RNA sequence: UCAUCGGCGCUCUCUAAUUCGCUUGGUGCAGGUCGGGAACUGCUUCGCUUUUUGUUGCUCUUCGUUUGAUUCAGCUCUUUAAUUUCCCUGCCGUAGGAGGGGAAAAUCGGGCGAAUUGGAUCCCGCCUUGCAUCAACUGAAUCCGAGACCGCGGUGAAG
Numbered sequence: 001u002c003a004u005c006g007g008c009g010c011u012c013u014c015u016a017a018u019u020c021g022c023u024u025g026g027u028g029c030a031g032g033u034c035g036g037g038a039a040c041u042g043c044u045u046c047g048c049u050u051u052u053u054g055u056u057g058c059u060c061u062u063c064g065u066u067u068g069a070u071u072c073a074g075c076u077c078u079u080u081a082a083u084u085u086c087c088c089u090g091c092c093g094u095a096g097g098a099g100g101g102g103a104a105a106a107u108c109g110g111g112c113g114a115a116u117u118g119g120a121u122c123c124c125g126c127c128u129u130g131c132a133u134c135a136a137c138u139g140a141a142u143c144c145g146a147g148a149c150c151g152c153g154g155u156g157a158a159g
Stems, first nucleotide, its partner, number of pairs: 013146002017142004023136010034125005040119002

The family of this 159-nucleotide RNA sequence from Momordica charantia is "MIR168 microRNA precursor family". Rfam links the family to the GO terms miRNA-mediated post-transcriptional gene silencing and RISC complex. The base pairs follow the family's consensus structure, which was predicted with WAR. The match comes from Rfam's covariance-model search (106 bits). The source organism's lineage runs through Eukaryota, Tracheophyta, Mesangiospermae, rosids and Momordica. For this family Rfam cites "MicroRNAs in plants" (Reinhart et al., Genes Dev, 2002).